Annotation
Rfam assigns this 84-nucleotide RNA sequence from Tymovirus to the family "Tymovirus/Pomovirus/Furovirus tRNA-like 3' UTR element". The sequence is in the family's curated seed alignment. A reference for the family is Hartwick et al. (2018), "Ribosome-induced RNA conformational changes in a viral 3'-UTR sense and regulate translation levels", Nat Commun.
RNA sequence: UUAGCUCGCCAGUGCGAGGCCUCUUCCUACACAAGAGGUAUUGGGGUGCGACUCCCCCGUCUAUCCUGAACGUCAUCAGGACCA
Numbered sequence: 001u002u003a004g005c006u007c008g009c010c011a012g013u014g015c016g017a018g019g020c021c022u023c024u025u026c027c028u029a030c031a032c033a034a035g036a037g038g039u040a041u042u043g044g045g046g047u048g049c050g051a052c053u054c055c056c057c058c059g060u061c062u063a064u065c066c067u068g069a070a071c072g073u074c075a076u077c078a079g080g081a082c083c084a
Stems, first nucleotide, its partner, number of pairs: 004074001005018005012049001019039007043057004058072003065080005
Pairs were carried over by alignment from the consensus structure, which is taken from published work.
Rfam's curators write: This family represents a tRNA-like structure found in the 3' UTR of Tymoviruses, Pomoviruses and Furovirus.
NCBI's taxonomy places the organism under Viruses, Riboviria, Orthornavirae, Alsuviricetes, Tymoviridae.
Gene Ontology term of the family: regulation of translation.